[Rfam]
RNA sequence: ACGCCGUCUCGCAGCGGCGUGCCACGGCCUCUGGAGGCCGCAACGGGGGUGGUGCCGUGUCGGCGCAGCACCACCCCCGUUCU
Numbered sequence: 001a002c003g004c005c006g007u008c009u010c011g012c013a014g015c016g017g018c019g020u021g022c023c024a025c026g027g028c029c030u031c032u033g034g035a036g037g038c039c040g041c042a043a044c045g046g047g048g049g050u051g052g053u054g055c056c057g058u059g060u061c062g063g064c065g066c067a068g069c070a071c072c073a074c075c076c077c078c079g080u081u082c083u
Base pairs, nucleotide, nucleotide: 001020002019003018004017005016006015007014021041022040027039028037029036030035043080044079045078046077047076048075049074050073051072052071053070054069055068057066058065059064
Overview: Streptomyces RNA 6106: an 83-nucleotide RNA from Streptomyces sp. RP5T. Rfam classes the family as a small RNA. The pairing is the family consensus, mapped onto this sequence. For this family Rfam cites "Deep sequencing-based identification of small non-coding RNAs in Streptomyces coelicolor" (Vockenhuber et al., RNA Biol, 2011). It scores 65 bits against the family's covariance model. Identified by deep sequencing of transcriptome at the end of exponential growth phase.